A member of the RNA family "Small nucleolar RNA SNORA12" from Nyctiprogne leucopyga, 142 nucleotides long. Taxonomically the source falls in Nyctiprogne (Eukaryota, Metazoa, Dipnotetrapodomorpha, Neognathae). Rfam's curators write: U108 belongs to the H/ACA family of snoRNAs. The sequence is predicted to guide the pseudouridylation of the U372 residue in the 28S rRNA subunit. On this family, see Gu et al., Nucleic Acids Res 2005: "A novel experimental approach for systematic identification of box H/ACA snoRNAs from eukaryotes". The base pairs follow the family's consensus structure, which was predicted with RNAalifold. It is annotated as an H/ACA-box small nucleolar RNA.
RNA sequence: UAUUGUGGUGGUUUCUGUAUUUGGCAGCUCUGUAAUGGUAUCAGAGCAGCCUUAAACUACCACAGAGAUCAGAAAGGAGAAGGCUGUGCUGAAAACUUUUUCAAGCUUUCAGUUUUCAGCUUUUAGUUCAUCUCCUACAGAA
Numbered sequence: 001u002a003u004u005g006u007g008g009u010g011g012u013u014u015c016u017g018u019a020u021u022u023g024g025c026a027g028c029u030c031u032g033u034a035a036u037g038g039u040a041u042c043a044g045a046g047c048a049g050c051c052u053u054a055a056a057c058u059a060c061c062a063c064a065g066a067g068a069u070c071a072g073a074a075a076g077g078a079g080a081a082g083g084c085u086g087u088g089c090u091g092a093a094a095a096c097u098u099u100u101u102c103a104a105g106c107u108u109u110c111a112g113u114u115u116u117c118a119g120c121u122u123u124u125a126g127u128u129c130a131u132c133u134c135c136u137a138c139a140g141a142a
Stems, first nucleotide, its partner, number of pairs: 005063007023051003027047006076135004104128004